The record is a 417-nucleotide RNA from Antrihabitans cavernicola, which matches "Bacterial RNase P class A" in Rfam. A search with the family's covariance model found it, with a score of 274 bits. The source organism's lineage runs through Bacteria, Bacillati, Actinomycetes, Mycobacteriales and Antrihabitans.
RNA sequence: CGAGUUGGCUGGACGGCCGCGGCGGCGGGAACCGGCACCUGGUGUCCAGGCCCGCCUUCGAGGAAAGUCCGGACUCCACAGAGCAGGGCGGUUGCUAACGGCAACCCGAGGUGACUCGCGGGACAGUGCCACAGAAAACAGACCGCCAUCGCGCAAGCGGUGGUCAGGGUGAAACGGUGCGGUAAGAGCGCACCAGCGCCCCGGGUGACCGGGGCGGCUAGGUAAACCCCGCCCGGAGCAAGGUUGAAGGUUGCACCCGGAUUCGUCCAGGUGUGGCUGCGCAGAUGUUCGAGGGCUGCUCGCCCGAGUCUGCGGGUGAACCGCUCGAGGUACCCGGCAACGGUGUGCCCAGAUGGAUGGUCGUCACCCGACGCGAUGCGGCGGGUACAGGAUCCGGCUUACACGCCAACUCGUCCG
Numbered sequence: 001c002g003a004g005u006u007g008g009c010u011g012g013a014c015g016g017c018c019g020c021g022g023c024g025g026c027g028g029g030a031a032c033c034g035g036c037a038c039c040u041g042g043u044g045u046c047c048a049g050g051c052c053c054g055c056c057u058u059c060g061a062g063g064a065a066a067g068u069c070c071g072g073a074c075u076c077c078a079c080a081g082a083g084c085a086g087g088g089c090g091g092u093u094g095c096u097a098a099c100g101g102c103a104a105c106c107c108g109a110g111g112u113g114a115c116u117c118g119c120g121g122g123a124c125a126g127u128g129c130c131a132c133a134g135a136a137a138a139c140a141g142a143c144c145g146c147c148a149u150c151g152c153g154c155a156a157g158c159g160g161u162g163g164u165c166a167g168g169g170u171g172a173a174a175c176g177g178u179g180c181g182g183u184a185a186g187a188g189c190g191c192a193c194c195a196g197c198g199c200c201c202c203g204g205g206u207g208a209c210c211g212g213g214g215c216g217g218c219u220a221g222g223u224a225a226a227c228c229c230c231g232c233c234c235g236g237a238g239c240a241a242g243g244u245u246g247a248a249g250g251u252u253g254c255a256c257c258c259g260g261a262u263u264c265g266u267c268c269a270g271g272u273g274u275g276g277c278u279g280c281g282c283a284g285a286u287g288u289u290c291g292a293g294g295g296c297u298g299c300u301c302g303c304c305c306g307a308g309u310c311u312g313c314g315g316g317u318g319a320a321c322c323g324c325u326c327g328a329g330g331u332a333c334c335c336g337g338c339a340a341c342g343g344u345g346u347g348c349c350c351a352g353a354u355g356g357a358u359g360g361u362c363g364u365c366a367c368c369c370g371a372c373g374c375g376a377u378g379c380g381g382c383g384g385g386u387a388c389a390g391g392a393u394c395c396g397g398c399u400u401a402c403a404c405g406c407c408a409a410c411u412c413g414u415c416c417g
Base pairs, nucleotide, nucleotide: 001413002412003411004410005409006408007407008406009405011402012365013364014363015362016361017360018359020060021059022058024056025055026054027053028052065400066399067398069397070396071395072394073393074238075237076236077235081301082300083299084298086234087233088232089231090230091105092104093103094102095101106120107118108117109116110115121229122228126227127226128223129222130221143168144167145164146163147162148161149160150159151158152157176194177193178192179191180190181189196218197216198215199214200213201212202211203210204209242322243321244320245319281313282312283311284310285309286308293305294304295303296302329348334343335342336341
Dot-bracket structure: (((((((((.((((((((.(((.(((((.......................))))).)))....[[[.[[[[[((((...[[[[.((((((((((.....)))))(((((....)))).)((...(((((............((((((((((....))))))))..)).......((((((.......)))))).(((((((((....)))))))).)..)))..)))))))))))))...((((...................................((((((......((((.]]]]))))..)))))).....))))......(....(((....)))....)..........)))))))...........................]]]]]]]].)..)))))))))....